[Rfam]
RNA sequence: UAUCACCAAGGAAUAGUGUUCUUCGCUAAUUAAACUUCCGCGAAGAGCAGAAAGGAAUCAAGACCAUCAACACCGAUGGUUUCGAGUUCAAAAAUAUAAAAAGGAACAG
Numbered sequence: 001u002a003u004c005a006c007c008a009a010g011g012a013a014u015a016g017u018g019u020u021c022u023u024c025g026c027u028a029a030u031u032a033a034a035c036u037u038c039c040g041c042g043a044a045g046a047g048c049a050g051a052a053a054g055g056a057a058u059c060a061a062g063a064c065c066a067u068c069a070a071c072a073c074c075g076a077u078g079g080u081u082u083c084g085a086g087u088u089c090a091a092a093a094a095u096a097u098a099a100a101a102a103g104g105a106a107c108a109g
Base pairs, nucleotide, nucleotide: 021045022044023043024042025041026040062081063080064079065078066077067076068075

A member of the RNA family "gltS RNA" from Vibrio nigripulchritudo, 109 nucleotides long. By type it is a cis-regulatory element.